Shown here is a 70-nucleotide RNA sequence from Psylliodes chrysocephalus, a member of the family "mir-1000 microRNA precursor family". Rfam links the family to the GO terms negative regulation of glutamate secretion, neurotransmission, miRNA-mediated post-transcriptional gene silencing and RISC complex. It scores 78 bits against the family's covariance model. Pairs were carried over by alignment from the consensus structure, which was predicted with RNAalifold.
RNA sequence: GGCUGUGAUAUUGUCCUGUCACAGCAGUACUGUCUUUUAGAUACUGCUGGUUCGGGACAUUUCCACAGCC
Numbered sequence: 001g002g003c004u005g006u007g008a009u010a011u012u013g014u015c016c017u018g019u020c021a022c023a024g025c026a027g028u029a030c031u032g033u034c035u036u037u038u039a040g041a042u043a044c045u046g047c048u049g050g051u052u053c054g055g056g057a058c059a060u061u062u063c064c065a066c067a068g069c070c
Stems, first nucleotide, its partner, number of pairs: 003068004012059007022049008